[Rfam]
RNA sequence: UCUGGUAUUGGGUGAGGCAUUGCAGUUGUGGCUGCUGUAUCACAUGUUUGUCAGUAGGUGGCAGAGGAGAGGCUAUGUCUACCUCAGUGUUCUGACUUGUGAACUUCUGAAUGAUUAAGUCUUCCAAA
Numbered sequence: 001u002c003u004g005g006u007a008u009u010g011g012g013u014g015a016g017g018c019a020u021u022g023c024a025g026u027u028g029u030g031g032c033u034g035c036u037g038u039a040u041c042a043c044a045u046g047u048u049u050g051u052c053a054g055u056a057g058g059u060g061g062c063a064g065a066g067g068a069g070a071g072g073c074u075a076u077g078u079c080u081a082c083c084u085c086a087g088u089g090u091u092c093u094g095a096c097u098u099g100u101g102a103a104c105u106u107c108u109g110a111a112u113g114a115u116u117a118a119g120u121c122u123u124c125c126a127a128a
Stems, first nucleotide, its partner, number of pairs: 002064003006060001008057003016052003022049001024047001027044005067125001069123006082113001084110004089104004
The family of this 128-nucleotide RNA sequence from Mus musculus is "Small nucleolar RNA SNORA17". Its family is annotated with nucleolus and RNA processing in the Gene Ontology. A reference for the family is Ofengand and Bakin (1997), "Mapping to nucleotide resolution of pseudouridine residues in large subunit ribosomal RNAs from representative eukaryotes, prokaryotes, archaebacteria, mitochondria and chloroplasts", J Mol Biol. Rfam describes the family as follows. snoRNA ACA 17 belongs to the H/ACA family of snoRNAs and is predicted to guide pseudouridylation of the 28S rRNA at positions U4659 and U4598. It shares the same host gene together with ACA43. NB This family has a high threshold value to exclude a large number of closely related sequences that do not appear to have conserved H and ACA boxes, and may be pseudogenes.